The record is a 92-nucleotide sequence from Streptomyces sp. 3213.3, which matches "sodF sRNA" in Rfam.
RNA sequence: ACGCCCUGCCUCGUGAUCGUCUUCUCACCUUUCACGCGGGCAGGCGGAUGAGAAGGCGGCCCCCGCGAGGACGUGACUCGCGGAGGCCGCCG
Numbered sequence: 001a002c003g004c005c006c007u008g009c010c011u012c013g014u015g016a017u018c019g020u021c022u023u024c025u026c027a028c029c030u031u032u033c034a035c036g037c038g039g040g041c042a043g044g045c046g047g048a049u050g051a052g053a054a055g056g057c058g059g060c061c062c063c064c065g066c067g068a069g070g071a072c073g074u075g076a077c078u079c080g081c082g083g084a085g086g087c088c089g090c091c092g
Stems, first nucleotide, its partner, number of pairs: 002046002005044007013035004019029001055091007063083007
Record summary: The organism belongs to Streptomyces, within Bacteria. The base pairs follow the family's consensus structure.